[Rfam]
RNA: mir-263 microRNA precursor family
RNA sequence: CCAAGACAAGACUUGGCACUGAAAGAAUUCACAGGGAAAUAUUUUCAAAUGCUGUGGAACUAUUGGUGCCUAUUCUUGUCAAGU
Number, nucleotide and partner (000 for none) at each position: 001c000002c000003a000004a000005g080006a079007c078008a077009a076010g075011a000012c000013u072014u000015g070016g069017c068018a067019c000020u065021g064022a063023a061024a000025g060026a000027a000028u000029u057030c056031a055032c054033a053034g052035g000036g000037a000038a000039a000040u000041a000042u000043u000044u000045u000046c000047a000048a000049a000050u000051g000052c034053u033054g032055u031056g030057g029058a000059a000060c025061u023062a000063u022064u021065g020066g000067u018068g017069c016070c015071u000072a013073u000074u000075c010076u009077u008078g007079u006080c005081a000082a000083g000084u000